[Rfam]
RNA sequence: GUUCUUCUUCCUAUGCACAUCUGUCCUUGUAAGCUGGAGGAGGACAUGUGUGCAUAGGGAAGAGAUCA
Numbered sequence: 001g002u003u004c005u006u007c008u009u010c011c012u013a014u015g016c017a018c019a020u021c022u023g024u025c026c027u028u029g030u031a032a033g034c035u036g037g038a039g040g041a042g043g044a045c046a047u048g049u050g051u052g053c054a055u056a057g058g059g060a061a062g063a064g065a066u067c068a
Stems, first nucleotide, its partner, number of pairs: 001067001003065004008060013022046007030038001
This 68-nucleotide sequence from Branchiostoma floridae belongs to the Rfam family "mir-2068 microRNA precursor family". Rfam 15.1 lists 2 matches to the family in 2 species. NCBI's taxonomy places the organism under Eukaryota, Metazoa, Chordata, Amphioxiformes, Branchiostoma. The sequence is in the family's curated seed alignment. The family's consensus secondary structure was predicted with RNAalifold. Its family is annotated with RISC complex and miRNA-mediated post-transcriptional gene silencing in the Gene Ontology.